[Rfam]
RNA sequence: UAUGAAUCUAGCGGAAACACUUCAGCACAAACUAAGAUUUUGAUACCAGUGUGCGGAAAUGCUUCUGCUACGAUUUUA
Dot-bracket structure: ((.((.(.((((((((.((.(((.(((((..((..............))))))).))).)).)))))))).).)).))

A member of the RNA family "mir-147 microRNA precursor family" from Microtus ochrogaster, 78 nucleotides long. A search with the family's covariance model found it, with a score of 80 bits. The family has 26 seed sequences and 757 matches in Rfam 15.1. Gene Ontology terms of the family: RISC complex and miRNA-mediated post-transcriptional gene silencing. On this family, see Ahn et al., Mol Hum Reprod 2010: "MicroRNA transcriptome in the newborn mouse ovaries determined by massive parallel sequencing". Pairs were carried over by alignment from the consensus structure, which was predicted with RNAalifold.